RNA sequence: CUCUUAUUCAGAGUGGUGGAGAUACAUAGGAUCUAUGAAGCCACGGCAACCCCCUAGAGGAAGGUGCCAACCUGAGCGAAAUGCUGUCACAGACAGAUCGAACAAUAAGAG
Numbered sequence: 001c002u003c004u005u006a007u008u009c010a011g012a013g014u015g016g017u018g019g020a021g022a023u024a025c026a027u028a029g030g031a032u033c034u035a036u037g038a039a040g041c042c043a044c045g046g047c048a049a050c051c052c053c054c055u056a057g058a059g060g061a062a063g064g065u066g067c068c069a070a071c072c073u074g075a076g077c078g079a080a081a082u083g084c085u086g087u088c089a090c091a092g093a094c095a096g097a098u099c100g101a102a103c104a105a106u107a108a109g110a111g
Stems, first nucleotide, its partner, number of pairs: 001111008013044005021033003027076001030073001045068004050064002052060002077100003082095001